The family of this 127-nucleotide RNA sequence from Thamnophis sirtalis is "Small nucleolar RNA SNORA33".
RNA sequence: CUGCCAGUAAGACAAAAUCUGCUUAACUUACAAAUGUUCUGCAGAAGAUCAUUGCUGGCAAUAAUAAUGCCAGAGCACGAGCCUUGAAGACUUUGUAGUCAUUGAGGUCCCAGUAACGGCCACAUUG
Numbered sequence: 001c002u003g004c005c006a007g008u009a010a011g012a013c014a015a016a017a018u019c020u021g022c023u024u025a026a027c028u029u030a031c032a033a034a035u036g037u038u039c040u041g042c043a044g045a046a047g048a049u050c051a052u053u054g055c056u057g058g059c060a061a062u063a064a065u066a067a068u069g070c071c072a073g074a075g076c077a078c079g080a081g082c083c084u085u086g087a088a089g090a091c092u093u094u095g096u097a098g099u100c101a102u103u104g105a106g107g108u109c110c111c112a113g114u115a116a117c118g119g120c121c122a123c124a125u126u127g
Base pairs, nucleotide, nucleotide: 003059004058005057006056007055018045019044020043021042022041069120070119071118081108082107083106084105085104086103087102089100090099091098
The organism belongs to Thamnophis, within Eukaryota.
From the family's description: ACA33 is a member of the H/ACA class of snoRNA that guide the sites of modification of uridines to pseudouridines.
The family's consensus secondary structure was predicted with PFOLD.